[Rfam]
RNA sequence: CCCGCCACUAUGCUGGUCUGUAUGAGUGACUUGGUAUAAUCCAGUGGAGGCUAAGACCAAACCCAGCUCUAGGAAGCAGUGCUGCCCAAUCUAAUGGGUAACUCUGUGCCGAAAGGCCUGGAACACAC
Number, nucleotide and partner (000 for none) at each position: 001c000002c000003c000004g000005c047006c046007a045008c044009u043010a000011u000012g000013c000014u000015g000016g000017u000018c034019u000020g030021u028022a027023u000024g000025a000026g000027u022028g021029a000030c020031u000032u000033g000034g018035u000036a000037u000038a000039a000040u000041c000042c000043a009044g008045u007046g006047g005048a000049g000050g000051c000052u000053a000054a000055g000056a000057c000058c000059a000060a000061a000062c000063c121064c120065a119066g118067c116068u115069c000070u113071a000072g110073g109074a000075a000076g000077c106078a105079g104080u000081g102082c000083u000084g000085c098086c097087c096088a000089a000090u000091c000092u000093a000094a000095u000096g087097g086098g085099u000100a000101a000102c081103u000104c079105u078106g077107u000108g000109c073110c072111g000112a000113a070114a000115g068116g067117c000118c066119u065120g064121g063122a000123a000124c000125a000126c000127a000128c000
RNA: Small nucleolar RNA SNORA65
Organism: Astyanax mexicanus